[Rfam]
RNA sequence: UAAUUAUACACCAUUGAGUGCAGCGUUGAUGAAAUUCUCUUGUUAGCUUACUUAGCUAUUUUCUCACGAUGGCGUGGAAUCAUUUCACCAGCGCUGCAUUCAACCAUGUUUUUC
Numbered sequence: 001u002a003a004u005u006a007u008a009c010a011c012c013a014u015u016g017a018g019u020g021c022a023g024c025g026u027u028g029a030u031g032a033a034a035u036u037c038u039c040u041u042g043u044u045a046g047c048u049u050a051c052u053u054a055g056c057u058a059u060u061u062u063c064u065c066a067c068g069a070u071g072g073c074g075u076g077g078a079a080u081c082a083u084u085u086c087a088c089c090a091g092c093g094c095u096g097c098a099u100u101c102a103a104c105c106a107u108g109u110u111u112u113u114c
Stems, first nucleotide, its partner, number of pairs: 006111001008109003014103015030087003